A member of the RNA family "Small nucleolar RNA SNORA63" from Pan paniscus, 131 nucleotides long. By type it is an H/ACA-box small nucleolar RNA. The match comes from Rfam's covariance-model search (103 bits). A reference for the family is Mishra and Eliceiri (1997), "Three small nucleolar RNAs that are involved in ribosomal RNA precursor processing", Proc Natl Acad Sci U S A. About the family: E3 belongs to the H/ACA class of snoRNAs and is involved in the processing of eukaryotic pre-rRNA and has regions of complementarity to 18S rRNA. E3 is encoded in introns in the gene for protein synthesis initiation factor 4AII.
RNA sequence: AGGCAGGAUCUAGUUACAUUGUAGCUGCGAAGUGCUGCAUUGUCUUUGCCCCCUGCUCAAAAUAAAACUGUUACCUUUCAAGCCCUGUCUGCCGUGGUGCUGUAGCAGCAGGGAUGUUUGGUCUCAUACAU
Numbered sequence: 001a002g003g004c005a006g007g008a009u010c011u012a013g014u015u016a017c018a019u020u021g022u023a024g025c026u027g028c029g030a031a032g033u034g035c036u037g038c039a040u041u042g043u044c045u046u047u048g049c050c051c052c053c054u055g056c057u058c059a060a061a062a063u064a065a066a067a068c069u070g071u072u073a074c075c076u077u078u079c080a081a082g083c084c085c086u087g088u089c090u091g092c093c094g095u096g097g098u099g100c101u102g103u104a105g106c107a108g109c110a111g112g113g114a115u116g117u118u119u120g121g122u123c124u125c126a127u128a129c130a131u
Stems, first nucleotide, its partner, number of pairs: 003056005016043003020039006084112004089108004
Dot-bracket structure: ..(((((........(((.((((((........)))))).)))........)))))...........................((((.((((............))))))))...................